Shown here is a 107-nucleotide RNA from Serratia symbiotica, a member of the family "tp2".
By type it is a small RNA.
Nucleotides: 107
Stems, first nucleotide, its partner, number of pairs: 002091003020083004032078001034076007043067005049061004
Number, partner (000 for none) and nucleotide at each position: 001000g002091g003090u004089a005000u006000u007000c008000c009000u010000u011000a012000u013000c014000u015000a016000u017000c018000u019000a020083a021082u022081g023080g024000u025000u026000u027000a028000u029000u030000u031000g032078g033000a034076g035075c036074c037073a038072g039071u040070c041000u042000u043067c044066c045065g046064g047063u048000g049061u050060u051059u052058u053000a054000u055000g056000a057000c058052a059051a060050a061049a062000c063047a064046c065045c066044g067043g068000a069000a070040g071039a072038c073037u074036g075035g076034c077000c078032c079000a080023u081022c082021a083020u084000u085000u086000g087000a088000u089004u090003g091002c092000a093000g094000c095000a096000a097000a098000u099000u100000c101000a102000g103000c104000c105000a106000a107000g

Record summary
NCBI's taxonomy places the organism under Bacteria, Pseudomonadota, Yersiniaceae, Serratia, Serratia symbiotica. For this family Rfam cites "A survey of small RNA-encoding genes in Escherichia coli" (Hershberg et al., Nucleic Acids Res, 2003).